Nucleotides: 055
Base pairs, nucleotide, nucleotide: 005020006019007018008017009016010015024044025043026042027041028040029038030037031036
Number, partner (000 for none) and nucleotide at each position: 001000c002000u003000a004000a005020c006019u007018c008017u009016c010015u011000u012000u013000g014000g015010a016009g017008a018007g019006a020005g021000a022000c023000a024044g025043a026042u027041u028040u029038c030037a031036g032000c033000u034000u035000g036031c037030u038029g039000c040028a041027a042026a043025u044024c045000a046000g047000a048000g049000a050000c051000a052000g053000g054000g055000c

Overview: Whalefall-1 RNA: a 55-nucleotide RNA from Gracilimonas mengyeensis. The organism belongs to Gracilimonas, within Bacteria. It is annotated as a small RNA. The match comes from Rfam's covariance-model search (43 bits). The family's consensus secondary structure is taken from published work.